RNA sequence: CUGCCCGAUGAUUAUAAAAAGACGCGAAGAGGACUUAAGCUGGCGCUCUUCCUUUUUCUCUCUUUCCUAUACUUCUUUCUCUUUCUUUGACUGUCCAGCGUCCUAUGAGCGAAGAUUAUGAGAUAUGAGGGCAG
Number, nucleotide and partner (000 for none) at each position: 001c134002u133003g132004c131005c130006c129007g000008a000009u000010g000011a000012u000013u000014a000015u000016a000017a000018a000019a000020a000021g000022a000023c000024g000025c000026g000027a000028a000029g000030a049031g048032g047033a000034c045035u000036u043037a000038a000039g000040c000041u000042g000043g036044c000045g034046c000047u032048c031049u030050u000051c000052c000053u000054u000055u000056u000057u000058c000059u000060c000061u000062c000063u000064u000065u000066c000067c000068u000069a000070u000071a000072c000073u000074u000075c000076u000077u000078u000079c000080u000081c000082u000083u000084u000085c000086u000087u000088u000089g000090a000091c000092u000093g000094u000095c000096c000097a000098g000099c000100g000101u000102c000103c000104u000105a000106u000107g000108a000109g000110c000111g000112a000113a000114g000115a000116u000117u000118a000119u000120g000121a000122g000123a000124u000125a000126u000127g000128a000129g006130g005131g004132c003133a002134g001
The family of this 134-nucleotide sequence from Nannospalax galili is "Small nucleolar RNA SNORD97". It scores 144 bits against the family's covariance model. By type it is a C/D-box small nucleolar RNA.